The family of this 112-nucleotide RNA sequence from Firmicutes bacterium CAG:103 is "TPP riboswitch aptamer (THI element)". Vitamin B(1) in its active form thiamin pyrophosphate (TPP) is an essential coenzyme that is synthesised by coupling of pyrimidine and thiazole moieties in bacteria. Rfam 15.1 lists 16,130 matches to the family in 8,693 species. Its family is annotated with thiamine pyrophosphate binding in the Gene Ontology.
RNA sequence: UCAUGUAUAUUGGGGGGCUGGGUCAUUCCCGGCUGAGACGAGUGAAUCGAAGCUCGAUACCCACAGACCUGAUCCGGAUAAUGCCGGCGUAGGAAACGAAAUCUAUCAUACU
Numbered sequence: 001u002c003a004u005g006u007a008u009a010u011u012g013g014g015g016g017g018c019u020g021g022g023u024c025a026u027u028c029c030c031g032g033c034u035g036a037g038a039c040g041a042g043u044g045a046a047u048c049g050a051a052g053c054u055c056g057a058u059a060c061c062c063a064c065a066g067a068c069c070u071g072a073u074c075c076g077g078a079u080a081a082u083g084c085c086g087g088c089g090u091a092g093g094a095a096a097c098g099a100a101a102u103c104u105a106u107c108a109u110a111c112u
Base pairs, nucleotide, nucleotide: 006100008098010096011063012062013061014060017033018032019031020030021029039056040055041054042053043052068093069092070091071090074087075086076085077084